[Rfam]
Shown here is a 52-nucleotide RNA sequence, a member of the family "Mu-gpT-DE RNA". It is one of the family's seed sequences.
RNA sequence: CCCUGACAGAUGCACUAAGUAUCUGACUUAACCCAGACAGGAGAUCAACAUG
Number, nucleotide and partner (000 for none) at each position: 001c000002c041003c040004u039005g038006a000007c025008a024009g023010a022011u021012g000013c000014a000015c000016u000017a000018a000019g000020u000021a011022u010023c009024u008025g007026a000027c000028u000029u000030a000031a000032c000033c000034c000035a000036g000037a000038c005039a004040g003041g002042a000043g000044a000045u000046c000047a000048a000049c000050a000051u000052g000